[Rfam]
RNA sequence: GUGCCCUUUUAAGGUUGCUGCAGUACUUUAAGAGGCUAACACAGAAGGUAAAGCAAGUCUCCAUAAAAAACCCAAAGACAAGAUCGGUAGAACUCCUCUUUGGAUCCUAUCUGGAGUCACAAGU
Numbered sequence: 001g002u003g004c005c006c007u008u009u010u011a012a013g014g015u016u017g018c019u020g021c022a023g024u025a026c027u028u029u030a031a032g033a034g035g036c037u038a039a040c041a042c043a044g045a046a047g048g049u050a051a052a053g054c055a056a057g058u059c060u061c062c063a064u065a066a067a068a069a070a071c072c073c074a075a076a077g078a079c080a081a082g083a084u085c086g087g088u089a090g091a092a093c094u095c096c097u098c099u100u101u102g103g104a105u106c107c108u109a110u111c112u113g114g115a116g117u118c119a120c121a122a123g124u
Base pairs, nucleotide, nucleotide: 002050003049004048005047007046008045009044010043014040015039016038017037019035021032057118059116060115061114062113063112072103073102074101075100076099077098078097081094082093084091085090
Source information:
Shown here is a 124-nucleotide sequence from Echinops telfairi, a member of the family "Small nucleolar RNA SNORA26". Clan: SNORA27 clan. The sequence is in the family's curated seed alignment. Rfam 15.1 lists 1,943 matches to the family in 640 species. The literature on the family includes a 2001 paper in EMBO J by Huttenhofer et al., "RNomics: an experimental approach that identifies 201 candidates for novel, small, non-messenger RNAs in mouse". Rfam's curators write: The snoRNA HBI-6 belong to the H/ACA family of snoRNAs, guiding the pseudouridylation of position U4522 if the 28S rRNA. HBI-6 is the human orthologue of mouse MBI-6 snoRNA. Lineage of the source: Eukaryota > Bilateria > Sarcopterygii > Theria > Echinops.